[Rfam]
RNA: Small Cajal body-specific RNA 7
Organism: Catharus fuscescens
RNA sequence: GGGAAGUGAUGACACAGAGAUAAUUGGCUGUGUUUGCAUGAAGUGUGUGUGAGCCAGGGCUGGGGUGGGGGUGUGUGUGUGUGUGGGGAUGUUGUGGGGGGCUCUCCUGGGGGCACUGAUGGCAGUGCUGAGCCAGGAGUGCAUCUGAGGCGUGUUGGGCACCUCUGGGGCCCCCCUGCAACACUGCCAGUGAUUAAAGCCCCAAAAAAAACCCACCAGGAGAGCCCCAGGCAGCCAAAUCUCUCAGGGUCACCAGUGGUCCUGUGAUCUGAUCUCA
Number, nucleotide and partner (000 for none) at each position: 001g276002g275003g274004a273005a000006g000007u000008g000009a000010u000011g000012a000013c000014a000015c000016a000017g000018a000019g000020a000021u000022a000023a000024u000025u000026g000027g000028c000029u000030g000031u000032g000033u000034u000035u000036g000037c000038a000039u000040g000041a000042a000043g000044u000045g000046u000047g000048u000049g000050u000051g000052a000053g000054c000055c000056a000057g000058g000059g000060c000061u000062g000063g000064g000065g000066u000067g000068g000069g000070g000071g000072u000073g000074u000075g000076u000077g000078u000079g000080u000081g000082u000083g000084u000085g000086g000087g000088g000089a000090u000091g000092u000093u000094g000095u000096g000097g000098g000099g000100g000101g000102c000103u000104c000105u000106c000107c000108u000109g000110g000111g000112g000113g000114c000115a000116c000117u000118g000119a000120u000121g000122g000123c000124a000125g000126u000127g000128c000129u000130g000131a000132g000133c000134c000135a000136g000137g000138a000139g000140u000141g000142c000143a000144u000145c000146u000147g000148a000149g000150g000151c000152g000153u183154g182155u181156u180157g179158g173159g172160c000161a000162c169163c168164u000165c000166u000167g000168g163169g162170g000171c000172c159173c158174c000175c000176c000177u000178g000179c157180a156181a155182c154183a153184c000185u000186g000187c000188c000189a000190g000191u000192g000193a000194u000195u000196a000197a000198a000199g000200c000201c000202c000203c000204a000205a000206a000207a000208a000209a000210a000211a000212c000213c000214c000215a000216c000217c000218a000219g000220g000221a000222g000223a000224g000225c000226c000227c000228c000229a000230g000231g000232c000233a000234g000235c000236c000237a000238a000239a000240u000241c000242u000243c000244u000245c000246a000247g000248g000249g000250u000251c000252a000253c000254c000255a000256g000257u000258g000259g000260u000261c000262c000263u000264g000265u000266g000267a000268u000269c000270u000271g000272a000273u004274c003275u002276c001277a000